[Rfam]
Shown here is a 172-nucleotide RNA from Niastella yeongjuensis, a member of the family "Group II catalytic intron D1-D4-3". Rfam links the family to the GO term Group II intron splicing.
RNA sequence: UCCACUGCGAAGUGGAAUCUGAAGGAAGCUGGCGGCAAAGUUCCGGCCCGAGGAACACGAACACUAUCAGGCAGAUGCAGUGAGGACGAGUCUGCAUCACAAGACGAAGUCCAAAGAUUACACGGACACGGCACUGUAAAUGGUGCGGGUAUAUGGAACGGAGGUUUAUCGU
Numbered sequence: 001u002c003c004a005c006u007g008c009g010a011a012g013u014g015g016a017a018u019c020u021g022a023a024g025g026a027a028g029c030u031g032g033c034g035g036c037a038a039a040g041u042u043c044c045g046g047c048c049c050g051a052g053g054a055a056c057a058c059g060a061a062c063a064c065u066a067u068c069a070g071g072c073a074g075a076u077g078c079a080g081u082g083a084g085g086a087c088g089a090g091u092c093u094g095c096a097u098c099a100c101a102a103g104a105c106g107a108a109g110u111c112c113a114a115a116g117a118u119u120a121c122a123c124g125g126a127c128a129c130g131g132c133a134c135u136g137u138a139a140a141u142g143g144u145g146c147g148g149g150u151a152u153a154u155g156g157a158a159c160g161g162a163g164g165u166u167u168a169u170c171g172u
Base pairs, nucleotide, nucleotide: 001016002015003014004013005012006011028172029171031169035165036164040159041158042157043156044155045154046150047149048148049147050146062145063144064143065142066141071137072136073135076133077132078131080129081128082127084112085111086110087109090105091104092103093102